[Rfam]
RNA sequence: CUCUAAUACAAAUUUGAGAUUAUGUGUUUUAAGGAAUACAUACAGUAAAAGUAUUAGUAUUAAAGAGAUUUAUUCCUUCCUAAUAUAGGUAAAAAAGUAUCAAUAAAAUGUGUAUUAGUAAAAAAAUUUCGAACAUACACAUUUUAU
Numbered sequence: 001c002u003c004u005a006a007u008a009c010a011a012a013u014u015u016g017a018g019a020u021u022a023u024g025u026g027u028u029u030u031a032a033g034g035a036a037u038a039c040a041u042a043c044a045g046u047a048a049a050a051g052u053a054u055u056a057g058u059a060u061u062a063a064a065g066a067g068a069u070u071u072a073u074u075c076c077u078u079c080c081u082a083a084u085a086u087a088g089g090u091a092a093a094a095a096a097g098u099a100u101c102a103a104u105a106a107a108a109u110g111u112g113u114a115u116u117a118g119u120a121a122a123a124a125a126a127u128u129u130c131g132a133a134c135a136u137a138c139a140c141a142u143u144u145u146a147u
Base pairs, nucleotide, nucleotide: 003057004056005055006054007053008052009051014048015047021042022041023040024039025038026037027036028035029034079089080088081087082086103147104146105145106144107143108142109141110140111139112138113137114136115135121129122128
RNA: RT-14 RNA